[Rfam]
RNA sequence: GCCAGGCUGCUAUAAAAGCACAAACCAAUGUGUUUUCCUCCGCGUGGAGGUUGGCAGCAAGCAGUACCAUGCCGCAGGGCAGGGGUGCUGCAGAAAAGGCCGGUAAAUAUGCCGGUAAA
Numbered sequence: 001g002c003c004a005g006g007c008u009g010c011u012a013u014a015a016a017a018g019c020a021c022a023a024a025c026c027a028a029u030g031u032g033u034u035u036u037c038c039u040c041c042g043c044g045u046g047g048a049g050g051u052u053g054g055c056a057g058c059a060a061g062c063a064g065u066a067c068c069a070u071g072c073c074g075c076a077g078g079g080c081a082g083g084g085g086u087g088c089u090g091c092a093g094a095a096a097a098g099g100c101c102g103g104u105a106a107a108u109a110u111g112c113c114g115g116u117a118a119a
Base pairs, nucleotide, nucleotide: 037050038049039048040047041046061091062090063089064088065087066086067085068084070081071080072079099116100115101114102113103112